The record is a 584-nucleotide part of an RNA from Haloplanus salinarum, which matches "Archaeal large subunit ribosomal RNA" in Rfam. NCBI's taxonomy places the organism under Archaea, Methanobacteriati, Halobacteria, Haloferacaceae, Haloplanus.
[Rfam]
RNA sequence: CCCCCAAGGGGAAGCGAAGACCCUAUAGAGCUUUACUGCAGGCUGUCGCUGAGACGUGGUCGCUACUGUGCAGCAUAGGUAGGAGGCGUUACACAGGUACCCGCGCUAGCGGGCCACCGAGCCAGCAUUGAAAUACUACCCGGUAGUGACUGCGACUCUCACUCCUGGCGGAGGACACCGGUAGCCGGGCAGUUUGACUGGGGCGGUACGCGCUCGAAAAGAUAUCGAGCGCGCCCGAUGGUCUCCUCAUUCGGGUCGGAAACCCGAAAGAGAGCGCAAGAGCACAAGGAGGCCUGACAGUGAUCUUCCCAACGAGGAUCGCUGACGCGAAAGCGUGGUCUAGCGAACCCACGAGGUUCAUUCAUGGGACCCGUGGAUGACAGAAAAGCUACCUUAGGGAUAACAGAGUCGUCACUCGCAAGAGCACAUAUCGACCGAGUGGCUUGCUACCUCGAUGUCGGUUCCCUCCAUCCUGCCCGUGCAGAAGCGGGCAAGGGUGAGGUUGUUCGCCUAUUAAAGGAGGUCGUGAGCUGGGUUUAGACCGUCGUGAGACAGGUCGGCUGCUAUCUAUUGGGGGUGUUGAA
Numbered sequence: 001c002c003c004c005c006a007a008g009g010g011g012a013a014g015c016g017a018a019g020a021c022c023c024u025a026u027a028g029a030g031c032u033u034u035a036c037u038g039c040a041g042g043c044u045g046u047c048g049c050u051g052a053g054a055c056g057u058g059g060u061c062g063c064u065a066c067u068g069u070g071c072a073g074c075a076u077a078g079g080u081a082g083g084a085g086g087c088g089u090u091a092c093a094c095a096g097g098u099a100c101c102c103g104c105g106c107u108a109g110c111g112g113g114c115c116a117c118c119g120a121g122c123c124a125g126c127a128u129u130g131a132a133a134u135a136c137u138a139c140c141c142g143g144u145a146g147u148g149a150c151u152g153c154g155a156c157u158c159u160c161a162c163u164c165c166u167g168g169c170g171g172a173g174g175a176c177a178c179c180g181g182u183a184g185c186c187g188g189g190c191a192g193u194u195u196g197a198c199u200g201g202g203g204c205g206g207u208a209c210g211c212g213c214u215c216g217a218a219a220a221g222a223u224a225u226c227g228a229g230c231g232c233g234c235c236c237g238a239u240g241g242u243c244u245c246c247u248c249a250u251u252c253g254g255g256u257c258g259g260a261a262a263c264c265c266g267a268a269a270g271a272g273a274g275c276g277c278a279a280g281a282g283c284a285c286a287a288g289g290a291g292g293c294c295u296g297a298c299a300g301u302g303a304u305c306u307u308c309c310c311a312a313c314g315a316g317g318a319u320c321g322c323u324g325a326c327g328c329g330a331a332a333g334c335g336u337g338g339u340c341u342a343g344c345g346a347a348c349c350c351a352c353g354a355g356g357u358u359c360a361u362u363c364a365u366g367g368g369a370c371c372c373g374u375g376g377a378u379g380a381c382a383g384a385a386a387a388g389c390u391a392c393c394u395u396a397g398g399g400a401u402a403a404c405a406g407a408g409u410c411g412u413c414a415c416u417c418g419c420a421a422g423a424g425c426a427c428a429u430a431u432c433g434a435c436c437g438a439g440u441g442g443c444u445u446g447c448u449a450c451c452u453c454g455a456u457g458u459c460g461g462u463u464c465c466c467u468c469c470a471u472c473c474u475g476c477c478c479g480u481g482c483a484g485a486a487g488c489g490g491g492c493a494a495g496g497g498u499g500a501g502g503u504u505g506u507u508c509g510c511c512u513a514u515u516a517a518a519g520g521a522g523g524u525c526g527u528g529a530g531c532u533g534g535g536u537u538u539a540g541a542c543c544g545u546c547g548u549g550a551g552a553c554a555g556g557u558c559g560g561c562u563g564c565u566a567u568c569u570a571u572u573g574g575g576g577g578u579g580u581u582g583a584a
Stems, first nucleotide, its partner, number of pairs: 001577007010569003014564002022398004027394002029390005035193004042185007051158003055154014078140005085123003100113005162173004196209001197207003210232006235338002241293006247273002250268006274283002298324009326335001328333001349376005355371005407448003411445001412442007422432002459534001460532004464526001465523005472497002476491005500512004540558004544553003